Record summary: Lysine riboswitch aptamer: a 186-nucleotide sequence from Seinonella peptonophila. The source organism's lineage runs through Bacteria, Bacillota, Bacilli, Thermoactinomycetaceae and Seinonella. About the family: Riboswitches are metabolite binding domains within certain messenger RNAs that serve as precision sensors for their corresponding targets. Pairs were carried over by alignment from the consensus structure, which is taken from published work.
RNA sequence: UUGUGAUUUAGAGGUGCAAUCUUCAUCAGUAUACUUUUAGAGGCUACGAGGCUCGUGAUAGGAGUAGAAAGGGGAGAUUGCCGAAGUCGGUUACUACUCGUAUAGUAAAUCGGUUGGUGUCGUUGCUGAAUAAGGGCGGUACUGUCAUAAGGAACUCGUAGUUGCUUAUGGAGCGCUAUUUCACAG
Numbered sequence: 001u002u003g004u005g006a007u008u009u010a011g012a013g014g015u016g017c018a019a020u021c022u023u024c025a026u027c028a029g030u031a032u033a034c035u036u037u038u039a040g041a042g043g044c045u046a047c048g049a050g051g052c053u054c055g056u057g058a059u060a061g062g063a064g065u066a067g068a069a070a071g072g073g074g075a076g077a078u079u080g081c082c083g084a085a086g087u088c089g090g091u092u093a094c095u096a097c098u099c100g101u102a103u104a105g106u107a108a109a110u111c112g113g114u115u116g117g118u119g120u121c122g123u124u125g126c127u128g129a130a131u132a133a134g135g136g137c138g139g140u141a142c143u144g145u146c147a148u149a150a151g152g153a154a155c156u157c158g159u160a161g162u163u164g165c166u167u168a169u170g171g172a173g174c175g176c177u178a179u180u181u182c183a184c185a186g
Base pairs, nucleotide, nucleotide: 006181009178010177011176016081017080018079019078020077021076022075023074024073032066033065034064035063036062037061038060039059085115086114087113088112089111090110091109092107093106094105095104096103116143117142118141119140120139121138122137123136124135145171146170147169148168149167150166151165
Dot-bracket structure: .....(..(((....(((((((((.......((((((((...................))))))))......)))))))))...((((((((((((......))))).)))))))(((((((((..........))))))))).(((((((.............)))))))....)))..).....